[Rfam]
Annotation:
The family of this 124-nucleotide RNA from Orbus hercynius is "Histidine operon leader". At least 6 amino acid operons are known to be regulated by attenuation. In each a leader sequence of 150-200 bp is found upstream of the first gene in the operon. This leader sequence can assume two different secondary structures known as the terminator and the anti-terminator structure.
RNA sequence: CCAUCAUCACCAUUUCCCUGAAUAGUCUUCGGGCGUUUGGUGCUGGAAGACAUACGGUCUUCCGGUUGAGCGCAAAGCAAGUCAAUAGAGCCCUCGGAAGAUCAACUUCCGGGGGUUUUUUUAU
Dot-bracket structure: .......(((.(.(..(((((.......))))).).)..)))((((((((.......))))))))...................(.((((((((((((((.....)))))))))))))).)...